This 71-nucleotide RNA from Upupa epops belongs to the Rfam family "Small nucleolar RNA SNORD73". The base pairs follow the family's consensus structure, which was predicted with PFOLD. The match comes from Rfam's covariance-model search (61 bits). By type it is a C/D-box small nucleolar RNA.
RNA sequence: AAUGAAUGAUGACAGCACUGUUUCGGUCCCAGAUGACCUGGAAUGAUUUUACUUUACCACUUUCUGACAUU
Numbered sequence: 001a002a003u004g005a006a007u008g009a010u011g012a013c014a015g016c017a018c019u020g021u022u023u024c025g026g027u028c029c030c031a032g033a034u035g036a037c038c039u040g041g042a043a044u045g046a047u048u049u050u051a052c053u054u055u056a057c058c059a060c061u062u063u064c065u066g067a068c069a070u071u
Stems, first nucleotide, its partner, number of pairs: 001071004